[Rfam]
Overview: This 216-nucleotide RNA from Enterococcus faecalis belongs to the Rfam family "Group II catalytic intron D1-D4-5". Its family is annotated with Group II intron splicing in the Gene Ontology. Group II introns are found in rRNA, tRNA and mRNA of organelles in fungi, plants and protists, and also in mRNA in bacteria. It is one of the family's seed sequences.
RNA sequence: GAGAACUCUUAUUUUGAGAAUUGGAAUGAUGGGGUAACGCCCUGAAACGAUUCCCCUAAUCUCCGACAUGCGUUUAUCUCGUGCAAAAGAUAAAGGUGUGAAGCUCGGUAAAGUCGGCUGAAAGAUACCGUACGGAAAUCUCUACGUGAAAUAGAGAAGGUAAACGAAAGUGCCUUAGCGGUAAGGUAUGUAUCUGAUAGGUCGGGGGUCGGAAAA
Numbered sequence: 001g002a003g004a005a006c007u008c009u010u011a012u013u014u015u016g017a018g019a020a021u022u023g024g025a026a027u028g029a030u031g032g033g034g035u036a037a038c039g040c041c042c043u044g045a046a047a048c049g050a051u052u053c054c055c056c057u058a059a060u061c062u063c064c065g066a067c068a069u070g071c072g073u074u075u076a077u078c079u080c081g082u083g084c085a086a087a088a089g090a091u092a093a094a095g096g097u098g099u100g101a102a103g104c105u106c107g108g109u110a111a112a113g114u115c116g117g118c119u120g121a122a123a124g125a126u127a128c129c130g131u132a133c134g135g136a137a138a139u140c141u142c143u144a145c146g147u148g149a150a151a152u153a154g155a156g157a158a159g160g161u162a163a164a165c166g167a168a169a170g171u172g173c174c175u176u177a178g179c180g181g182u183a184a185g186g187u188a189u190g191u192a193u194c195u196g197a198u199a200g201g202u203c204g205g206g207g208g209u210c211g212g213a214a215a216a
Stems, first nucleotide, its partner, number of pairs: 018053006031043004054208004063108004067100005073094005080089001082087001115204005123195006129166003144161002170189008

A reference for the family is Bonen and Vogel (2001), "The ins and outs of group II introns", Trends Genet. Rfam 15.1 lists 720 matches to the family in 418 species. Pairs were carried over by alignment from the consensus structure.